[Rfam]
Shown here is a 68-nucleotide RNA sequence from Aneurinibacillus soli, a member of the family "Bacillaceae-1 RNA". Rfam classes the family as a small RNA. The source organism's lineage runs through Bacteria, Bacillota, Caryophanales, Paenibacillaceae and Aneurinibacillus. The family has 95 seed sequences and 5,721 matches in Rfam 15.1.
RNA sequence: AUUAAAGGAUGUUCUGCUAAAAGAGCUCACGUCCUGUGAGCAACGCAGAACGACUAUCAUCCUAGUAG
Numbered sequence: 001a002u003u004a005a006a007g008g009a010u011g012u013u014c015u016g017c018u019a020a021a022a023g024a025g026c027u028c029a030c031g032u033c034c035u036g037u038g039a040g041c042a043a044c045g046c047a048g049a050a051c052g053a054c055u056a057u058c059a060u061c062c063u064a065g066u067a068g
Base pairs, nucleotide, nucleotide: 011051012050013049014048015047016046017045026040027039028038029037030036054068055067056066057065